[Rfam]
Rfam assigns this 72-nucleotide sequence from Phialocephala subalpina to the family "tRNA". The family's consensus secondary structure is taken from published work. By type it is a transfer RNA.
RNA sequence: GGUUCUAUGGUGUAAUGGUUAGCACAUCGGAUUUUGAUUCCGGGGAUCUGGGUUCGAUUCCCAGUAGAACCU
Numbered sequence: 001g002g003u004u005c006u007a008u009g010g011u012g013u014a015a016u017g018g019u020u021a022g023c024a025c026a027u028c029g030g031a032u033u034u035u036g037a038u039u040c041c042g043g044g045g046a047u048c049u050g051g052g053u054u055c056g057a058u059u060c061c062c063a064g065u066a067g068a069a070c071c072u
Stems, first nucleotide, its partner, number of pairs: 001071007010025004027043005048064005